[Rfam]
RNA sequence: CAUCGUUCUCGGGGCGGGGUGCAACUCCCCACCGGCGGUGAUGGAGUUUCUGGGCCCUGCCCGUGCUCCCAGCCCGCGAGCGCUCUGCGUUAGCAGAGGUCAGCAGAUCCGGUGUGAUUCCGGAGCCGACGGUGAUAGUCCGGAUAAGAGAGAGCGUGU
Numbered sequence: 001c002a003u004c005g006u007u008c009u010c011g012g013g014g015c016g017g018g019g020u021g022c023a024a025c026u027c028c029c030c031a032c033c034g035g036c037g038g039u040g041a042u043g044g045a046g047u048u049u050c051u052g053g054g055c056c057c058u059g060c061c062c063g064u065g066c067u068c069c070c071a072g073c074c075c076g077c078g079a080g081c082g083c084u085c086u087g088c089g090u091u092a093g094c095a096g097a098g099g100u101c102a103g104c105a106g107a108u109c110c111g112g113u114g115u116g117a118u119u120c121c122g123g124a125g126c127c128g129a130c131g132g133u134g135a136u137a138g139u140c141c142g143g144a145u146a147a148g149a150g151a152g153a154g155c156g157u158g159u
Stems, first nucleotide, its partner, number of pairs: 004156007017029003031139002033128002035077004072126002080104002108124005130142003

The record is a 159-nucleotide sequence from Halopseudomonas pachastrellae, which matches "FMN riboswitch aptamer (RFN element)" in Rfam. Lineage of the source: Bacteria > Pseudomonadati > Pseudomonadota > Pseudomonadaceae > Halopseudomonas. It scores 108 bits against the family's covariance model.